[Rfam]
Nucleotides: 077
Stems, first nucleotide, its partner, number of pairs: 015044004021077002024074004028040002049066007
Number, partner (000 for none) and nucleotide at each position: 001000g002000g003000u004000g005000g006000a007000g008000a009000g010000u011000u012000u013000g014000a015044g016043g017042c018041c019000a020000u021077a022076g023000c024074a025073g026072a027071a028040g029039c030000a031000c032000u033000c034000a035000u036000g037000g038000a039029g040028u041018g042017g043016c044015c045000a046000u047000g048000u049066c050065a051064g052063a053062u054061u055060c056000c057000a058000g059000u060055g061054a062053a063052u064051c065050u066049g067000c068000a069000a070000a071027u072026u073025c074024u075000a076022c077021u